This 136-nucleotide RNA sequence from Molossus molossus belongs to the Rfam family "Small nucleolar RNA SNORA43". Lineage of the source: Eukaryota > Deuterostomia > Chiroptera > Molossidae > Molossus. ACA43 is a member of the H/ACA class of snoRNA that guide the sites of modification of uridines to pseudouridines.

RNA sequence: AAGGUGCUGGACCUGCCGGCACCGCGGACGCAGCUGCUGUGCUGCGCCUGUGGCAUCGGGGCAAAGAGGAAGCGGCUAUUUCUACGCUCAGUGCUCAGAACAGUGGGCACUAAGAAUGGUUUGUGGCCUGACAUCC
Numbered sequence: 001a002a003g004g005u006g007c008u009g010g011a012c013c014u015g016c017c018g019g020c021a022c023c024g025c026g027g028a029c030g031c032a033g034c035u036g037c038u039g040u041g042c043u044g045c046g047c048c049u050g051u052g053g054c055a056u057c058g059g060g061g062c063a064a065a066g067a068g069g070a071a072g073c074g075g076c077u078a079u080u081u082c083u084a085c086g087c088u089c090a091g092u093g094c095u096c097a098g099a100a101c102a103g104u105g106g107g108c109a110c111u112a113a114g115a116a117u118g119g120u121u122u123g124u125g126g127c128c129u130g131a132c133a134u135c136c
Base pairs, nucleotide, nucleotide: 004062005061007059008058009057010056024051025050026049027048074128075127076126082119083118084117087114088113092109093108094107095106096105097104

About this RNA
By type it is an H/ACA-box small nucleolar RNA.